RNA sequence: AACCUGUACUUGUGUAAGUCACUCUGAAUAAGAGUGUUUGCUAAAUGCCUUAAU
Numbered sequence: 001a002a003c004c005u006g007u008a009c010u011u012g013u014g015u016a017a018g019u020c021a022c023u024c025u026g027a028a029u030a031a032g033a034g035u036g037u038u039u040g041c042u043a044a045a046u047g048c049c050u051u052a053a054u
Stems, first nucleotide, its partner, number of pairs: 013043001014041003020036006

A member of the RNA family "UnaL2 LINE 3' element" from Synaphobranchus kaupii, 54 nucleotides long. The family has 30 seed sequences and 493,311 matches in Rfam 15.1. Gene Ontology term of the family: transposition, RNA-mediated. The family's consensus secondary structure is taken from published work. The source organism's lineage runs through Eukaryota, Eumetazoa, Teleostomi, Elopocephalai and Synaphobranchus.